Small nucleolar RNA SNORA3/SNORA45 family: a 129-nucleotide RNA from Amphiprion percula.
Rfam classes the family as an H/ACA-box small nucleolar RNA.
Its family is annotated with nucleolus and RNA processing in the Gene Ontology.
The members of this family belong to the H/ACA class of snoRNAs which are thought to guide the sites of modification of uridines to pseudouridines. This family includes mouse snoMBI-28 and human homologues ACA3 (SNORA3) and ACA3-2 (SNORA45). Both ACA3 and ACA3-2 share the same host gene. MBI-28, ACA3 and ACA3-2 are all predicted to guide the pseudouridylation of residues in 28S rRNA.
The family has 6 seed sequences and 2,080 matches in Rfam 15.1.
[Rfam]
RNA sequence: AACGAGGCUAGAGUCACGCCUGGACGUCCCGUUGUCCCGGUGUGCUAGAUUCUCGUAGAGGAAACGUCUUUGCUUAUUCAUUGGCUGUAAUCUGCUGUGAUCCAGCCAAUCACCGACUCAGACACAUUC
Numbered sequence: 001a002a003c004g005a006g007g008c009u010a011g012a013g014u015c016a017c018g019c020c021u022g023g024a025c026g027u028c029c030c031g032u033u034g035u036c037c038c039g040g041u042g043u044g045c046u047a048g049a050u051u052c053u054c055g056u057a058g059a060g061g062a063a064a065c066g067u068c069u070u071u072g073c074u075u076a077u078u079c080a081u082u083g084g085c086u087g088u089a090a091u092c093u094g095c096u097g098u099g100a101u102c103c104a105g106c107c108a109a110u111c112a113c114c115g116a117c118u119c120a121g122a123c124a125c126a127u128u129c
Stems, first nucleotide, its partner, number of pairs: 002056006009049001012046002015044006023036004068121002072117001074115001080110005086104002089101001091099001